[Rfam]
RNA sequence: AAAGGGGUAGCCGAAACACCUUUAAAAGAGUAGGCA
Numbered sequence: 001a002a003a004g005g006g007g008u009a010g011c012c013g014a015a016a017c018a019c020c021u022u023u024a025a026a027a028g029a030g031u032a033g034g035c036a
Stems, first nucleotide, its partner, number of pairs: 002022004010035003
Annotation:
Shown here is a 36-nucleotide RNA from Chitinophaga rupis, a member of the family "DUF805b RNA". Pairs were carried over by alignment from the consensus structure, which is taken from published work. A search with the family's covariance model found it, with a score of 41 bits. Rfam classes the family as a cis-regulatory element. The organism belongs to Chitinophaga, within Bacteria.